[Rfam]
Nucleotides: 057
Stems, first nucleotide, its partner, number of pairs: 002056002005053001007051010018040005
Number, partner (000 for none) and nucleotide at each position: 001000c002056g003055g004000c005053g006000a007051g008050c009049c010048c011047c012046g013045u014044g015043g016042c017000g018040c019039u020038g021037c022036c023000g024000g025000a026000c027000c028000c029000c030000c031000g032000a033000c034000c035000u036022g037021g038020c039019a040018g041000g042016g043015c044014c045013a046012c047011g048010g049009g050008g051007c052000g053005u054000u055003c056002c057000a
Description: Shown here is a 57-nucleotide sequence from Actinomycetospora cinnamomea, a member of the family "F6 TB sRNA". The family's consensus secondary structure is taken from published work. The organism belongs to Actinomycetospora, within Bacteria. A search with the family's covariance model found it, with a score of 58 bits. Rfam classes the family as a small RNA. The literature on the family includes a 2009 paper in Mol Microbiol by Arnvig and Young, "Identification of small RNAs in Mycobacterium tuberculosis".